[Rfam]
RNA sequence: CUACCAAUCUCGACCGGACCUCGACCGGCUCGUCUAUGUUGCCAAUCGACUCGGCGUGGCGUCGGUCGUGGUAGAUAGGC
Numbered sequence: 001c002u003a004c005c006a007a008u009c010u011c012g013a014c015c016g017g018a019c020c021u022c023g024a025c026c027g028g029c030u031c032g033u034c035u036a037u038g039u040u041g042c043c044a045a046u047c048g049a050c051u052c053g054g055c056g057u058g059g060c061g062u063c064g065g066u067c068g069u070g071g072u073a074g075a076u077a078g079g080c
Base pairs, nucleotide, nucleotide: 001078002077003076005074007072008071009070011068012067013066014065015064016063017062019059020058022056023055025054026053027052028051030049031048032047
This 80-nucleotide RNA sequence from Sus scrofa belongs to the Rfam family "mir-1307 microRNA precursor family".
The family's consensus secondary structure was predicted with RNAalifold.
Gene Ontology terms of the family: RISC complex and miRNA-mediated post-transcriptional gene silencing.
A reference for the family is Morin et al. (2008), "Application of massively parallel sequencing to microRNA profiling and discovery in human embryonic stem cells", Genome Res.